This 118-nucleotide RNA sequence from Sodalis ligni belongs to the Rfam family "Histidine operon leader". The match comes from Rfam's covariance-model search (104 bits). Rfam's curators write: At least 6 amino acid operons are known to be regulated by attenuation. Rfam classes the family as a cis-regulatory leader. Rfam links the family to the GO term histidine biosynthetic process. Pairs were carried over by alignment from the consensus structure, which is taken from published work.
RNA sequence: CCAUCACCACCAUCACCCUGACUAGUCUUUCAGGCGUUUGGUGCUGGAAGACAAAAAUCUUCCAGUGGCGCAGAACGUAAGAGAGCCCUCGGAAGAUUUCUUCCGAGGGUUUUUUUUU
Numbered sequence: 001c002c003a004u005c006a007c008c009a010c011c012a013u014c015a016c017c018c019u020g021a022c023u024a025g026u027c028u029u030u031c032a033g034g035c036g037u038u039u040g041g042u043g044c045u046g047g048a049a050g051a052c053a054a055a056a057a058u059c060u061u062c063c064a065g066u067g068g069c070g071c072a073g074a075a076c077g078u079a080a081g082a083g084a085g086c087c088c089u090c091g092g093a094a095g096a097u098u099u100c101u102u103c104c105g106a107g108g109g110u111u112u113u114u115u116u117u118u
Stems, first nucleotide, its partner, number of pairs: 008043003012038001014036001017034005044065008080115016